[Rfam]
RNA sequence: UUGGUUAGAACUCAGCUUAAUCCGCCGCCGCAAUGGCAGUGGUUGAAGGCUCGUCACGCCGGCAACGAGCCUUCGAAGGCAGAGCAUUUUCUGCCGGGUUCCGCCAUUGGAACCAAUGGACAUAACAGUCAAC
Numbered sequence: 001u002u003g004g005u006u007a008g009a010a011c012u013c014a015g016c017u018u019a020a021u022c023c024g025c026c027g028c029c030g031c032a033a034u035g036g037c038a039g040u041g042g043u044u045g046a047a048g049g050c051u052c053g054u055c056a057c058g059c060c061g062g063c064a065a066c067g068a069g070c071c072u073u074c075g076a077a078g079g080c081a082g083a084g085c086a087u088u089u090u091c092u093g094c095c096g097g098g099u100u101c102c103g104c105c106a107u108u109g110g111a112a113c114c115a116a117u118g119g120a121c122a123u124a125a126c127a128g129u130c131a132a133c
Stems, first nucleotide, its partner, number of pairs: 022042004027037003048071007078095006097114006